[Rfam]
Nucleotides: 061
Base pairs, nucleotide, nucleotide: 001056003053004052005051006050007049008048009047010046012045013044020040021039026035027034028033
Number, partner (000 for none) and nucleotide at each position: 001056c002000g003053u004052g005051g006050g007049g008048g009047u010046c011000a012045g013044u014000g015000a016000c017000g018000a019000a020040g021039c022000c023000u024000u025000g026035g027034g028033a029000g030000u031000g032000a033028u034027c035026c036000c037000g038000g039021g040020u041000c042000g043000a044013a045012c046010g047009g048008c049007c050006c051005c052004u053003a054000g055000u056001g057000c058000a059000g060000a061000u

Eukaryotic large subunit ribosomal RNA: a 61-nucleotide part of an RNA from Ramalina farinacea. Its family is annotated with ribosome and structural constituent of ribosome in the Gene Ontology. It scores 2529 bits against the family's covariance model. Its Rfam clan is "LSU clan". The source organism's lineage runs through Eukaryota, Fungi, Lecanorales, Ramalinaceae and Ramalina.